[Rfam]
RNA sequence: AUAGCACUUUCACAGGUCCUGCCCAGGCCGAGGGGCCAGGAUUUGGUAGCUGGUGCUGAAAGAAAGCCCUUGAGUGCAUCUUCCCUGGGACUGUGCCAGUGGUAGCUGUCACUCAAUGGCACAGAG
Numbered sequence: 001a002u003a004g005c006a007c008u009u010u011c012a013c014a015g016g017u018c019c020u021g022c023c024c025a026g027g028c029c030g031a032g033g034g035g036c037c038a039g040g041a042u043u044u045g046g047u048a049g050c051u052g053g054u055g056c057u058g059a060a061a062g063a064a065a066g067c068c069c070u071u072g073a074g075u076g077c078a079u080c081u082u083c084c085c086u087g088g089g090a091c092u093g094u095g096c097c098a099g100u101g102g103u104a105g106c107u108g109u110c111a112c113u114c115a116a117u118g119g120c121a122c123a124g125a126g
Base pairs, nucleotide, nucleotide: 003057004056005055006054007053008052013045014044015043017041018040019039020038022034023033024032068119069118070116071115072114073113075111076110078109079108080105081104083102084101085099086098087097088096